[Rfam]
RNA sequence: UCUCAAGCUGUGAUCCUCUAAAGGGAAGCACGUUCUGUUGUCUGAGAGAGAAGCACGUGCCUUCCUUUAGGGGGUGACCGUUUGAGA
Numbered sequence: 001u002c003u004c005a006a007g008c009u010g011u012g013a014u015c016c017u018c019u020a021a022a023g024g025g026a027a028g029c030a031c032g033u034u035c036u037g038u039u040g041u042c043u044g045a046g047a048g049a050g051a052a053g054c055a056c057g058u059g060c061c062u063u064c065c066u067u068u069a070g071g072g073g074g075u076g077a078c079c080g081u082u083u084g085a086g087a
Stems, first nucleotide, its partner, number of pairs: 001087005007081002010078002013075002016072003020068007028060006035053001038052002
mir-515 microRNA precursor family: an 87-nucleotide sequence from Aotus nancymaae. The base pairs follow the family's consensus structure, which was predicted with RNAalifold. NCBI's taxonomy places the organism under Eukaryota, Euteleostomi, Sarcopterygii, Aotidae, Aotus.